The record is a 238-nucleotide RNA from Bacillus smithii, which matches "T-box leader" in Rfam.
A search with the family's covariance model found it, with a score of 122 bits.
Pairs were carried over by alignment from the consensus structure, which is taken from published work.
It is annotated as a cis-regulatory leader.
[Rfam]
RNA sequence: GAUAAAUCGAUGAGCAAGAAGAGUACGUUCAGCCGAUUCGUUACAGAGAACCGGGCAAGGUGAGAGCCGGUGCGAUACGCUGUUCGGAAUGGCCUUGCGAGAGGCGUCCUGAACUUUUUAGUAGGGAUGCCCGGGUUUCCGCCGUUAAAAGGAUAGAGCAUCGGAAAAGUUCCUGUGCUCGAAAAGGGGAAGCUUUUGCUUCAAUUGAGGUGGCACCGCGGCGUAGUUCGUCCUCCAA
Numbered sequence: 001g002a003u004a005a006a007u008c009g010a011u012g013a014g015c016a017a018g019a020a021g022a023g024u025a026c027g028u029u030c031a032g033c034c035g036a037u038u039c040g041u042u043a044c045a046g047a048g049a050a051c052c053g054g055g056c057a058a059g060g061u062g063a064g065a066g067c068c069g070g071u072g073c074g075a076u077a078c079g080c081u082g083u084u085c086g087g088a089a090u091g092g093c094c095u096u097g098c099g100a101g102a103g104g105c106g107u108c109c110u111g112a113a114c115u116u117u118u119u120a121g122u123a124g125g126g127a128u129g130c131c132c133g134g135g136u137u138u139c140c141g142c143c144g145u146u147a148a149a150a151g152g153a154u155a156g157a158g159c160a161u162c163g164g165a166a167a168a169g170u171u172c173c174u175g176u177g178c179u180c181g182a183a184a185a186g187g188g189g190a191a192g193c194u195u196u197u198g199c200u201u202c203a204a205u206u207g208a209g210g211u212g213g214c215a216c217c218g219c220g221g222c223g224u225a226g227u228u229c230g231u232c233c234u235c236c237a238a
Stems, first nucleotide, its partner, number of pairs: 007102002015097004026086002030082002039074003050071005104130007132144003189202005207235004218231004